[Rfam]
Nucleotides: 325
Base pairs, nucleotide, nucleotide: 001104002103004096005095006094007093009090010089014087015086020084023081024080025079026078027077029075031070033066034065035064038063039062040061041060042058111165112164113162115160116159117134118133119132120131122130123129136155142152143151144150195265196264197263201259202258204256205255206254207253208252209251216247219244222242225239226238288325289324290323294316297311298310299309300308
Number, partner (000 for none) and nucleotide at each position: 001104g002103g003000g004096a005095g006094g007093g008000u009090a010089a011000u012000c013000u014087g015086g016000c017000u018000g019000u020084g021000a022000a023081a024080u025079c026078u027077g028000g029075u030000a031070u032000g033066c034065c035064a036000u037000u038063g039062a040061u041060u042058g043000c044000a045000u046000g047000g048000g049000u050000u051000g052000a053000u054000c055000u056000g057000a058042c059000u060041g061040a062039u063038c064035u065034g066033g067000c068000c069000a070031g071000c072000u073000u074000a075029g076000g077027c078026a079025g080024g081023u082000g083000c084020u085000c086015c087014c088000u089010u090009u091000c092000u093007u094006u095005c096004u097000u098000g099000a100000c101000a102000u103002u104001c105000c106000a107000u108000a109000u110000g111165u112164u113162c114000c115160u116159c117134c118133u119132g120131a121000u122130g123129c124000u125000g126000u127000g128000u129123g130122c131120u132119u133118g134117g135000u136155u137000a138000a139000u140000g141000a142152g143151g144150a145000c146000a147000g148000c149000c150144u151143c152142c153000c154000c155136a156000c157000u158000a159116g160115a161000c162113g163000u164112g165111g166000u167000a168000u169000u170000g171000u172000u173000c174000a175000u176000u177000g178000g179000u180000c181000a182000a183000a184000g185000g186000g187000g188000u189000g190000u191000g192000g193000a194000a195265g196264c197263u198000g199000u200000g201259c202258u203000c204256c205255c206254c207253u208252g209251c210000u211000g212000g213000a214000a215000g216247c217000u218000c219244u220000a221000a222242g223000g224000u225239a226238g227000c228000u229000c230000a231000a232000g233000g234000u235000c236000c237000a238226u239225u240000u241000g242222u243000a244219g245000a246000u247216g248000a249000g250000u251209g252208c253207a254206g255205g256204g257000u258202a259201g260000u261000c262000a263197a264196g265195c266000a267000u268000c269000c270000a271000a272000u273000a274000c275000u276000g277000a278000a279000g280000a281000c282000a283000c284000a285000u286000c287000c288325a289324a290323a291000u292000g293000a294316g295000a296000a297311g298310c299309u300308g301000c302000a303000u304000g305000c306000a307000u308300c309299a310298g311297u312000c313000u314000g315000c316294c317000a318000g319000u320000g321000g322000c323290u324289u325288u
This 325-nucleotide RNA from Chloropsis cyanopogon belongs to the Rfam family "7SK RNA". A reference for the family is Blencowe (2002), "Transcription: surprising role for an elusive small nuclear RNA", Curr Biol. By type it is a non-coding RNA gene. It scores 146 bits against the family's covariance model. Pairs were carried over by alignment from the consensus structure, which is taken from published work.